RNA: Rhodo-rpoB RNA
RNA sequence: GGUUCGGGAGCCAAAGUCGGGAACUUUGGCAGGAAUAGAACCUAAAACGUGUUUCGUUGGCUAUGAGCGUCGGUGCCCGACGACUGUUCAU
Numbered sequence: 001g002g003u004u005c006g007g008g009a010g011c012c013a014a015a016g017u018c019g020g021g022a023a024c025u026u027u028g029g030c031a032g033g034a035a036u037a038g039a040a041c042c043u044a045a046a047a048c049g050u051g052u053u054u055c056g057u058u059g060g061c062u063a064u065g066a067g068c069g070u071c072g073g074u075g076c077c078c079g080a081c082g083a084c085u086g087u088u089c090a091u
Stems, first nucleotide, its partner, number of pairs: 001042005010030007063091005069084004